Rfam assigns this 99-nucleotide sequence from Streptococcus sp. DD10 to the family "azaaromatic riboswitch aptamer (yjdF RNA)". The match comes from Rfam's covariance-model search (82 bits).
[Rfam]
Nucleotides: 099
Stems, first nucleotide, its partner, number of pairs: 006089006022042002025040004043056005067075002
Number, partner (000 for none) and nucleotide at each position: 001000c002000c003000c004000a005000a006089c007088u008087a009086a010085g011084a012000u013000a014000a015000a016000a017000a018000c019000a020000c021000a022042g023041u024000u025040c026039u027038g028037g029000u030000u031000g032000g033000u034000a035000g036000u037028c038027c039026a040025g041023a042022c043056g044055u045054a046053g047052g048000c049000a050000a051000g052047c053046c054045u055044a056043u057000c058000a059000g060000u061000a062000a063000c064000c065000c066000u067075c068074c069000u070000c071000c072000u073000u074068g075067g076000u077000u078000g079000u080000c081000c082000a083000u084011u085010c086009u087008u088007a089006g090000g091000g092000a093000u094000a095000g096000a097000u098000u099000u
Annotation:
The family's consensus secondary structure is taken from published work. Lineage of the source: Bacteria > Bacillati > Bacillota > Streptococcaceae > Streptococcus.